[Rfam]
RNA: Small nucleolar RNA SNORD74
Organism: Scleropages formosus
RNA sequence: CCAUGUUGAAUAUGAUGAAAAUGUGUUGGUAGGGACAUCUGAGAAAAUCUGAUGAAAUGCCAACCUUUCUGAUUUCACGUGG
Numbered sequence: 001c002c003a004u005g006u007u008g009a010a011u012a013u014g015a016u017g018a019a020a021a022u023g024u025g026u027u028g029g030u031a032g033g034g035a036c037a038u039c040u041g042a043g044a045a046a047a048u049c050u051g052a053u054g055a056a057a058u059g060c061c062a063a064c065c066u067u068u069c070u071g072a073u074u075u076c077a078c079g080u081g082g
Base pairs, nucleotide, nucleotide: 001082002081003080004079005078